The family of this 134-nucleotide RNA from Orycteropus afer is "Small nucleolar RNA SNORA84". Pairs were carried over by alignment from the consensus structure, which was predicted with WAR.
RNA sequence: GCCCUGUGGUUACUGGAUGCUGUUGUGCAUGUACAGUUCUCCAGUGAAUGGCAGUGGGCCAGAGCAAUACUGUGGUAUACGCAUGGGUGCUGUUCUUCCUCAGCAGCUUCCAUAGCCCGGUCACUGGUACAUGG
Numbered sequence: 001g002c003c004c005u006g007u008g009g010u011u012a013c014u015g016g017a018u019g020c021u022g023u024u025g026u027g028c029a030u031g032u033a034c035a036g037u038u039c040u041c042c043a044g045u046g047a048a049u050g051g052c053a054g055u056g057g058g059c060c061a062g063a064g065c066a067a068u069a070c071u072g073u074g075g076u077a078u079a080c081g082c083a084u085g086g087g088u089g090c091u092g093u094u095c096u097u098c099c100u101c102a103g104c105a106g107c108u109u110c111c112a113u114a115g116c117c118c119g120g121u122c123a124c125u126g127g128u129a130c131a132u133g134g
Base pairs, nucleotide, nucleotide: 001059002058003057004056007050008049010047011046012045013044014043015042016041017040019037020036021035022034023033070126072124073123074122075121076120081116082115083113084112085111086110089107090106091105092104093103094102
The literature on the family includes a 2002 paper in Curr Biol by Marker et al., "Experimental RNomics: identification of 140 candidates for small non-messenger RNAs in the plant Arabidopsis thaliana".